[Rfam]
RNA sequence: UCCUAGCCCCGAUUGAAGUGGAAAUCUUUUUGUUGGCGAGCUUUGCUCGUGAACAAAAAAUUGGAACGAAAAGCGGGAAAAUGG
Dot-bracket structure: ........(((.((...((...(((...((((((.(((((.....))))).))))))..)))...))...)).)))........

The record is an 84-nucleotide sequence from Flavobacterium piscinae, which matches "Flavo-1 RNA" in Rfam.
Lineage of the source: Bacteria > Pseudomonadati > Flavobacteriales > Flavobacteriaceae > Flavobacterium.
A search with the family's covariance model found it, with a score of 72 bits.
It is annotated as a small RNA.